[Rfam]
RNA sequence: CCGUGCAACCGGGGAAGUAGCGGAGCCCUGUACCUGCAAUCCGCUCCAGCAGGGGUUAUGCCGACCCGAGGGCUUAAGUCCGUGUAAACGCCCUCUGUAAGUGGUGAUGAAGUUUGGGUCUUACGCAAUGGGUGUCCGUGAAUCGUGUCAGGGCAGGAAUGCAGCAGCACUAAGCGGAAUGUCCCAUGUGCCGUGAGGGUGCCUGGCGGAGCCAACUGCAGAGGAAACCUAUACAGAUGGCGGUUCGACGGAAGGCGCACGG
Numbered sequence: 001c002c003g004u005g006c007a008a009c010c011g012g013g014g015a016a017g018u019a020g021c022g023g024a025g026c027c028c029u030g031u032a033c034c035u036g037c038a039a040u041c042c043g044c045u046c047c048a049g050c051a052g053g054g055g056u057u058a059u060g061c062c063g064a065c066c067c068g069a070g071g072g073c074u075u076a077a078g079u080c081c082g083u084g085u086a087a088a089c090g091c092c093c094u095c096u097g098u099a100a101g102u103g104g105u106g107a108u109g110a111a112g113u114u115u116g117g118g119u120c121u122u123a124c125g126c127a128a129u130g131g132g133u134g135u136c137c138g139u140g141a142a143u144c145g146u147g148u149c150a151g152g153g154c155a156g157g158a159a160u161g162c163a164g165c166a167g168c169a170c171u172a173a174g175c176g177g178a179a180u181g182u183c184c185c186a187u188g189u190g191c192c193g194u195g196a197g198g199g200u201g202c203c204u205g206g207c208g209g210a211g212c213c214a215a216c217u218g219c220a221g222a223g224g225a226a227a228c229c230u231a232u233a234c235a236g237a238u239g240g241c242g243g244u245u246c247g248a249c250g251g252a253a254g255g256c257g258c259a260c261g262g
Stems, first nucleotide, its partner, number of pairs: 001262006008056003011029004018022001033053005061255002065251002070246005078238003082234005093223006101216002103213003112207002115205005120197006126188002129186004135178005145170004153162003

A member of the RNA family "Bacterial large signal recognition particle RNA" from Lachnospiraceae bacterium XBB2008, 262 nucleotides long. The family's consensus secondary structure is taken from published work. Lineage of the source: Bacteria > Bacillati > Bacillota > Lachnospirales > Lachnospiraceae. The signal recognition particle (SRP) is a universally conserved ribonucleoprotein involved in the co-translational targeting of proteins to membranes. It scores 166 bits against the family's covariance model.